[Rfam]
RNA sequence: GAUCAUUGACAUACUGACAAGGCUAAAAACAAAGAGAUAACUAACGUAGAGAGGCUCUAAGCCCUCUACAAGUGACUAACAAUAUAGCUUGCAAUCUUAGACCUAUCGUGCUAAGAGCUGAACGGCUAACGACCGCCCCCCGCCCCUCGUAAAGGGCUUGCAAGCAC
Dot-bracket structure: ...............................................((((.(........).))))...................((((((((((((((..........))))))......(((.......)))......((((........))))))))))))..
RNA: DUF2693 RNA